[Rfam]
RNA: Plastid-psbA-1 3UTR RNA
RNA sequence: UGUCGAAGUUCCAUCUACAAAUGGAUAAGACUUUUGUCUUAGUGUAUAUGAAUCAUUGAAGGAAUGGAGCAAUACCCAAUAUCUUGUUUUAGUUGGGUAUUGCUCCAUU
Numbered sequence: 001u002g003u004c005g006a007a008g009u010u011c012c013a014u015c016u017a018c019a020a021a022u023g024g025a026u027a028a029g030a031c032u033u034u035u036g037u038c039u040u041a042g043u044g045u046a047u048a049u050g051a052a053u054c055a056u057u058g059a060a061g062g063a064a065u066g067g068a069g070c071a072a073u074a075c076c077c078a079a080u081a082u083c084u085u086g087u088u089u090u091a092g093u094u095g096g097g098u099a100u101u102g103c104u105c106c107a108u109u
Stems, first nucleotide, its partner, number of pairs: 010025005063109013077095002